The family of this 102-nucleotide sequence from Leersia perrieri is "mir-156 microRNA precursor family". Rfam links the family to the GO terms RISC complex and miRNA-mediated post-transcriptional gene silencing. Rfam 15.1 lists 1,401 matches to the family in 221 species. Rfam describes the family as follows. This family represents the plant microRNA (miRNA) precursor mir-156. The literature on the family includes a 2002 paper in Genes Dev by Reinhart et al., "MicroRNAs in plants". The organism belongs to Leersia, within Eukaryota.
[Rfam]
RNA sequence: CUGACAGAAGAGAGUGAGCACACAUGGUGACUUUCUUGCAUGCUGAAUAAACGAGAGGAAUUCAUGCUUGAAGCUAUGUGUGCUCACUUCUCUCUCUGUCAG
Numbered sequence: 001c002u003g004a005c006a007g008a009a010g011a012g013a014g015u016g017a018g019c020a021c022a023c024a025u026g027g028u029g030a031c032u033u034u035c036u037u038g039c040a041u042g043c044u045g046a047a048u049a050a051a052c053g054a055g056a057g058g059a060a061u062u063c064a065u066g067c068u069u070g071a072a073g074c075u076a077u078g079u080g081u082g083c084u085c086a087c088u089u090c091u092c093u094c095u096c097u098g099u100c101a102g
Base pairs, nucleotide, nucleotide: 001102002101003100004099005098006097007096008095010092011091012090013088014087015086016085017084018083019082020081021080023078024077025076026075027074028073